[Rfam]
About this RNA: Bacterial small signal recognition particle RNA: a 94-nucleotide RNA sequence from Catellatospora sp. IY07-71. By type it is a non-coding RNA gene. The source organism's lineage runs through Bacteria, Actinomycetota, Actinomycetes, Micromonosporaceae and Catellatospora. Clan: SRP clan. The signal recognition particle (SRP) is a universally conserved ribonucleoprotein involved in the co-translational targeting of proteins to membranes.
RNA sequence: AGCAGCCCCCGUGCGGCGGCACCCUGCGAACCUCCCCAGGGCCGGAAGGCAGCAAGGAUAAGCAGGCAAUACCGGGUGCACGGGGGCCCUUCAU
Numbered sequence: 001a002g003c004a005g006c007c008c009c010c011g012u013g014c015g016g017c018g019g020c021a022c023c024c025u026g027c028g029a030a031c032c033u034c035c036c037c038a039g040g041g042c043c044g045g046a047a048g049g050c051a052g053c054a055a056g057g058a059u060a061a062g063c064a065g066g067c068a069a070u071a072c073c074g075g076g077u078g079c080a081c082g083g084g085g086g087c088c089c090u091u092c093a094u
Stems, first nucleotide, its partner, number of pairs: 005087009014076001017074003021070001023066005033058003041050003